[Rfam]
RNA sequence: UUACUCCUGCGAUGUGCGUUACGACGAUAUAUUGUUUUGAACCAAUGGCUGUUUCAACGGGAGUUCGAAUUGUCCGGCGGCUGACAUGCCCUCGAAAGGGGAAGUCAAAAGCUGGGACUGAGGACACCCACCUGCGAGAGCGGGUUCAGAAACAUGCGCGUCGAACGGCAGAGCGGGUUUUUU
Numbered sequence: 001u002u003a004c005u006c007c008u009g010c011g012a013u014g015u016g017c018g019u020u021a022c023g024a025c026g027a028u029a030u031a032u033u034g035u036u037u038u039g040a041a042c043c044a045a046u047g048g049c050u051g052u053u054u055c056a057a058c059g060g061g062a063g064u065u066c067g068a069a070u071u072g073u074c075c076g077g078c079g080g081c082u083g084a085c086a087u088g089c090c091c092u093c094g095a096a097a098g099g100g101g102a103a104g105u106c107a108a109a110a111g112c113u114g115g116g117a118c119u120g121a122g123g124a125c126a127c128c129c130a131c132c133u134g135c136g137a138g139a140g141c142g143g144g145u146u147c148a149g150a151a152a153c154a155u156g157c158g159c160g161u162c163g164a165a166c167g168g169c170a171g172a173g174c175g176g177g178u179u180u181u182u183u
Stems, first nucleotide, its partner, number of pairs: 003180001006177005013170003017167003034153004038148006059129003063125004072118003075114004084105002089101003
This 183-nucleotide sequence from Cohnella fermenti belongs to the Rfam family "6S / SsrS RNA". About the family: E. coli 6S RNA was the first non coding RNA to be sequenced, but its function was unknown until recently. NCBI's taxonomy places the organism under Bacteria, Bacillati, Bacilli, Paenibacillaceae, Cohnella. Pairs were carried over by alignment from the consensus structure, which is taken from published work. The family has 150 seed sequences and 5,006 matches in Rfam 15.1.